The record is a 203-nucleotide sequence from Paenibacillus zeisoli, which matches "c-di-AMP riboswitch aptamer (ydaO/yuaA leader)" in Rfam.
Its family is annotated with regulation of gene expression and cyclic-di-AMP binding in the Gene Ontology.
Taxonomically the source falls in Paenibacillus (Bacteria, Bacillati, Bacillota, Caryophanales).
It scores 88 bits against the family's covariance model.
RNA sequence: GAACCAGUCUCGCUGAAUCUCCCUCACCGGAGAACGGGGGAACCAAUGCGGAUAUUUAAGCAUAAAUAUUCCGUGUUUGAUUUCUUUACGGGUCUUUGGGGUGAAUUCAAGGUCAUUGCGCCAUGAGCGGAUGAACCAAGAUAGGGCAGCUCUCUACGCCCGAACCCGACAGCUAACCUCGUAAGCGUAUGAAGAGAGAGGCA
Dot-bracket structure: ..........((((...(((((......)))))((((((....((...................................................))(((.....((...............................))..((((..........))))...))).........)))))).))))................